[Rfam]
RNA sequence: UGGCGAACGCGCGACUGGCGGCAUACCGAGGAUGGCAACGACCAUCGGGGAGCUGACGUCCGCGGGGGUCGACCGCCUGGGCCCCCGCG
Numbered sequence: 001u002g003g004c005g006a007a008c009g010c011g012c013g014a015c016u017g018g019c020g021g022c023a024u025a026c027c028g029a030g031g032a033u034g035g036c037a038a039c040g041a042c043c044a045u046c047g048g049g050g051a052g053c054u055g056a057c058g059u060c061c062g063c064g065g066g067g068g069u070c071g072a073c074c075g076c077c078u079g080g081g082c083c084c085c086c087g088c089g
Base pairs, nucleotide, nucleotide: 003063004062005061007059008058009057011053012052015049016048017077018076019075020074021073032045033044034043035042066084067083068082069081070080